[Rfam]
RNA sequence: AGGCUUUAGCUGGUUGAAUCCGGGCCAAAUUGUACGUUGUAUGGAGGCAUUUGGUCCCCUUCAACCAGCUGUAGUUG
Numbered sequence: 001a002g003g004c005u006u007u008a009g010c011u012g013g014u015u016g017a018a019u020c021c022g023g024g025c026c027a028a029a030u031u032g033u034a035c036g037u038u039g040u041a042u043g044g045a046g047g048c049a050u051u052u053g054g055u056c057c058c059c060u061u062c063a064a065c066c067a068g069c070u071g072u073a074g075u076u077g
Stems, first nucleotide, its partner, number of pairs: 003075003008070011022056002025054006
RNA: mir-133 microRNA precursor family